[Rfam]
RNA sequence: CUGGUUCUGUCUUUGGUUAUCUAGCUGUAUGAUGGAACACUGCGCUCAUAAAGCUAGGUUACCAAAGGCAGAAAUAG
Numbered sequence: 001c002u003g004g005u006u007c008u009g010u011c012u013u014u015g016g017u018u019a020u021c022u023a024g025c026u027g028u029a030u031g032a033u034g035g036a037a038c039a040c041u042g043c044g045c046u047c048a049u050a051a052a053g054c055u056a057g058g059u060u061a062c063c064a065a066a067g068g069c070a071g072a073a074a075u076a077g
Base pairs, nucleotide, nucleotide: 001077002076003075005073007071008070009069010068011067012066013065014064015063016062017061019059020058021057022056023055024054025053026052028050029049030048031047032046
RNA: mir-9/mir-79 microRNA precursor family